[Rfam]
The family of this 141-nucleotide RNA sequence from Chelativorans petroleitrophicus is "Alphaproteobacterial sRNA ar7". It is annotated as a small RNA. On this family, see del Val et al., RNA Biol 2012: "A survey of sRNA families in alpha-proteobacteria". The organism belongs to Chelativorans, within Bacteria.
RNA sequence: UACCGGCAAUAUUCCGCCGAGUCCGGUAAGGCUCGUCCCCCGCCUGUACCGGACAGCUGGCGGCAGCCUCACCCCCCUCUCCGGGCUGCCGCUCAUUUCAUGCAAGGCCGCCGUGGCUCCCCUCCGCCACGGCGGCACUUC
Number, nucleotide and partner (000 for none) at each position: 001u000002a000003c000004c000005g000006g000007c000008a000009a000010u000011a000012u000013u000014c000015c000016g000017c000018c000019g000020a000021g000022u053023c052024c051025g050026g049027u048028a047029a000030g044031g043032c042033u000034c000035g000036u000037c000038c000039c000040c000041c000042g032043c031044c030045u000046g000047u028048a027049c026050c025051g024052g023053a022054c000055a000056g000057c000058u000059g093060g092061c091062g090063g089064c088065a087066g086067c085068c084069u000070c000071a000072c000073c000074c000075c000076c000077c000078u000079c000080u000081c000082c000083g000084g068085g067086c066087u065088g064089c063090c062091g061092c060093u059094c000095a000096u000097u000098u000099c000100a000101u000102g000103c000104a000105a000106g000107g000108c135109c134110g133111c132112c131113g130114u129115g128116g127117c126118u000119c000120c000121c000122c000123u000124c000125c000126g117127c116128c115129a114130c113131g112132g111133c110134g109135g108136c000137a000138c000139u000140u000141c000